isrI Hfq binding RNA: a 99-nucleotide sequence from Salmonella enterica. It is one of the family's seed sequences. The base pairs follow the family's consensus structure, which was predicted with WAR. Lineage of the source: Bacteria > Pseudomonadota > Enterobacteriaceae > Salmonella enterica subsp. enterica > Salmonella enterica subsp. enterica serovar Typhimurium. For this family Rfam cites "Small RNAs encoded within genetic islands of Salmonella typhimurium show host-induced expression and role in virulence" (Padalon-Brauch et al., Nucleic Acids Res, 2008). The family's RNA type in Rfam is small RNA.
[Rfam]
RNA sequence: UAUUGUCGGUGUCUGGCAUCUGACAAGGGGCGAUGAUAUCUGCCAUAACGGUGAAGCAGAAGUACUGUCUGGGCCGUUACAGCCACCAGUUUAAAUGAC
Numbered sequence: 001u002a003u004u005g006u007c008g009g010u011g012u013c014u015g016g017c018a019u020c021u022g023a024c025a026a027g028g029g030g031c032g033a034u035g036a037u038a039u040c041u042g043c044c045a046u047a048a049c050g051g052u053g054a055a056g057c058a059g060a061a062g063u064a065c066u067g068u069c070u071g072g073g074c075c076g077u078u079a080c081a082g083c084c085a086c087c088a089g090u091u092u093a094a095a096u097g098a099c
Stems, first nucleotide, its partner, number of pairs: 008040006017032001019030003042052003